[Rfam]
RNA sequence: AUUUAGAGCUAGGGGCGCUAGAAUUGGCUAGCUGAGAAAAAAGCCGUAAACUUAUAAACCCUAACAACCUGCUCAAGGUAAUGCUUGCGAAGGGAAGCUUUAAGUAUAAUUU
Numbered sequence: 001a002u003u004u005a006g007a008g009c010u011a012g013g014g015g016c017g018c019u020a021g022a023a024u025u026g027g028c029u030a031g032c033u034g035a036g037a038a039a040a041a042a043g044c045c046g047u048a049a050a051c052u053u054a055u056a057a058a059c060c061c062u063a064a065c066a067a068c069c070u071g072c073u074c075a076a077g078g079u080a081a082u083g084c085u086u087g088c089g090a091a092g093g094g095a096a097g098c099u100u101u102a103a104g105u106a107u108a109a110u111u112u
Stems, first nucleotide, its partner, number of pairs: 006100005011062004017032005039055001041053003068093003074087004
Dot-bracket structure: .....(((((((((..(((((......)))))......(.(((.......))).)...)))).....(((...((((......))))...)))..)))))............